[Rfam]
The family of this 119-nucleotide RNA from Streptomyces venezuelae is "Streptomyces-metH RNA".
RNA sequence: CCGUCCGGCCUGUGGGACACCUUGUCCACCCCGGCCACGGCGCGGUUACGCUGAGCCCGUGCACCCUCCUCCGAAGGUGCAAAGCCGACAGCCGUCGCAUCCCAGGGAGCUCAUCCAUG
Numbered sequence: 001c002c003g004u005c006c007g008g009c010c011u012g013u014g015g016g017a018c019a020c021c022u023u024g025u026c027c028a029c030c031c032c033g034g035c036c037a038c039g040g041c042g043c044g045g046u047u048a049c050g051c052u053g054a055g056c057c058c059g060u061g062c063a064c065c066c067u068c069c070u071c072c073g074a075a076g077g078u079g080c081a082a083a084g085c086c087g088a089c090a091g092c093c094g095u096c097g098c099a100u101c102c103c104a105g106g107g108a109g110c111u112c113a114u115c116c117a118u119g
Base pairs, nucleotide, nucleotide: 060081061080062079063078065077066076067075084098085097087096088095089094
The organism belongs to Streptomyces venezuelae, within Bacteria. The sequence is in the family's curated seed alignment. The family's RNA type in Rfam is small RNA.